[Rfam]
RNA sequence: UUAAUAACCGAGGUCGAGAACCUCAAAUUAA
Numbered sequence: 001u002u003a004a005u006a007a008c009c010g011a012g013g014u015c016g017a018g019a020a021c022c023u024c025a026a027a028u029u030a031a
Stems, first nucleotide, its partner, number of pairs: 001031005010024005